[Rfam]
RNA: c-di-GMP-I riboswitch aptamer
Organism: Desulfoscipio geothermicus
RNA sequence: UUUCACAAAUGGUAAACUAUCUCGAAAGAGUAGGGCACAAAGCUACGGGUCUAACGUCCAAUCAAUGUGGGCUAUGACAGCCAAGCUGCAGGG
Numbered sequence: 001u002u003u004c005a006c007a008a009a010u011g012g013u014a015a016a017c018u019a020u021c022u023c024g025a026a027a028g029a030g031u032a033g034g035g036c037a038c039a040a041a042g043c044u045a046c047g048g049g050u051c052u053a054a055c056g057u058c059c060a061a062u063c064a065a066u067g068u069g070g071g072c073u074a075u076g077a078c079a080g081c082c083a084a085g086c087u088g089c090a091g092g093g
Stems, first nucleotide, its partner, number of pairs: 012038002017033004022029002041087004047082002049078003056072004